The family of this 81-nucleotide RNA sequence from Flavobacterium johnsoniae is "Group II catalytic intron D1-D4-1". The pairing is the family consensus, mapped onto this sequence.

[Rfam]
RNA sequence: UUUUUUUUACAGAACUAUGGAUAACAACUGCCAUAAGAAGUCAGCAGAGGUCAUAGUAGGUACUACUUGGUACUGAAGGAC
Numbered sequence: 001u002u003u004u005u006u007u008u009a010c011a012g013a014a015c016u017a018u019g020g021a022u023a024a025c026a027a028c029u030g031c032c033a034u035a036a037g038a039a040g041u042c043a044g045c046a047g048a049g050g051u052c053a054u055a056g057u058a059g060g061u062a063c064u065a066c067u068u069g070g071u072a073c074u075g076a077a078g079g080a081c
Base pairs, nucleotide, nucleotide: 001027002026004023006021007020008019009018011016041048042047050081051080052079059074060073061072062071063070064069
Taxonomically the source falls in Flavobacterium johnsoniae (Bacteria, Flavobacteriia, Flavobacteriales, Flavobacterium). Rfam's curators write: Group II introns are found in rRNA, tRNA and mRNA of organelles in fungi, plants and protists, and also in mRNA in bacteria. Rfam's curators put it in the seed alignment.